[Rfam]
RNA sequence: CGCUGGAAAGUCGCUCUUCGGAGCGCGCCGACGGAGCAAGGCGACCUCAUUGAGGACGUCGGAAUCUCUCAGGCUUCAGGACAGCG
Numbered sequence: 001c002g003c004u005g006g007a008a009a010g011u012c013g014c015u016c017u018u019c020g021g022a023g024c025g026c027g028c029c030g031a032c033g034g035a036g037c038a039a040g041g042c043g044a045c046c047u048c049a050u051u052g053a054g055g056a057c058g059u060c061g062g063a064a065u066c067u068c069u070c071a072g073g074c075u076u077c078a079g080g081a082c083a084g085c086g
Stems, first nucleotide, its partner, number of pairs: 001086005012025004027074003030070002034068003041060001

Background:
Shown here is an 86-nucleotide sequence from Brevundimonas sp. Root1423, a member of the family "Glycine riboswitch aptamer". Gene Ontology term of the family: glycine biosynthetic process. Taxonomically the source falls in Brevundimonas (Bacteria, Pseudomonadota, Alphaproteobacteria, Caulobacteraceae). The base pairs follow the family's consensus structure. The family is grouped with related families in Rfam's "Glycine riboswitch clan". A reference for the family is Mandal et al. (2004), "A glycine-dependent riboswitch that uses cooperative binding to control gene expression", Science.